Background: This 215-nucleotide RNA sequence from Sediminihaliea albiluteola belongs to the Rfam family "ilvB-OMG RNA". Taxonomically the source falls in Sediminihaliea (Bacteria, Pseudomonadota, Gammaproteobacteria, Halieaceae).

[Rfam]
RNA sequence: GUCUUGCAAGUGGCAACGACUCACGCUGAGUACCCUCGGCCUCUGGUCUACUGUCGCGCACAAUAGUUCGCAGCAGCUGCUUGUAGGUCCCCAUAUUGGCACCCUUCGUAUUGGAGGGGCUGAGGGCCAAAUACUGCGCUACCCCGCAUGGCAACCGAUACACGCCUCCGUGAUCGUUUCUUUCCUGGAAAGAGUCUUUGUGGGUAGGCCUAGGG
Dot-bracket structure: .................((((...((((((....))))))....))))..(((..((((......)..)))..))).........(((.((......(((..(((((.....))))).)))..)))))..................((.((..(.((((.((((....))))))))....).)).)).........((((....)))).......